[Rfam]
RNA sequence: AUGAGGAUGAUGAAACAAAUCAUUCGGAUUCCCAAUGAUUUUUCUCUUUAUAAUAGUUUUUAUUUGAAGAGGAAUGUGAUCUUAACAUUUUCCAUUUCUGACUCAU
Dot-bracket structure: (((((................................................................................................)))))
Numbered sequence: 001a002u003g004a005g006g007a008u009g010a011u012g013a014a015a016c017a018a019a020u021c022a023u024u025c026g027g028a029u030u031c032c033c034a035a036u037g038a039u040u041u042u043u044c045u046c047u048u049u050a051u052a053a054u055a056g057u058u059u060u061u062a063u064u065u066g067a068a069g070a071g072g073a074a075u076g077u078g079a080u081c082u083u084a085a086c087a088u089u090u091u092c093c094a095u096u097u098c099u100g101a102c103u104c105a106u
Stems, first nucleotide, its partner, number of pairs: 001106005